[Rfam]
RNA: Lysine riboswitch aptamer
RNA sequence: AGUGAGGAUAGAGGUGCAAAAACCAAGAGUACACAAUUGGAGGAGAAUGAGAUCCGUUGAGAAUUGUGGAAAGGGGAAUUUGCCGAAGCUGGAAGAAUCUCAUGUUCUGAAGGCUGGUUCUGUAUUAAAUAAAUACAGAACUGUCAUAUAGCGGAUGUUGCUAUAUGGAGGGCUAUCUCACGC
Numbered sequence: 001a002g003u004g005a006g007g008a009u010a011g012a013g014g015u016g017c018a019a020a021a022a023c024c025a026a027g028a029g030u031a032c033a034c035a036a037u038u039g040g041a042g043g044a045g046a047a048u049g050a051g052a053u054c055c056g057u058u059g060a061g062a063a064u065u066g067u068g069g070a071a072a073g074g075g076g077a078a079u080u081u082g083c084c085g086a087a088g089c090u091g092g093a094a095g096a097a098u099c100u101c102a103u104g105u106u107c108u109g110a111a112g113g114c115u116g117g118u119u120c121u122g123u124a125u126u127a128a129a130u131a132a133a134u135a136c137a138g139a140a141c142u143g144u145c146a147u148a149u150a151g152c153g154g155a156u157g158u159u160g161c162u163a164u165a166u167g168g169a170g171g172g173c174u175a176u177c178u179c180a181c182g183c
Stems, first nucleotide, its partner, number of pairs: 006178006016083005023076002032068007087115003090109005116142011144168007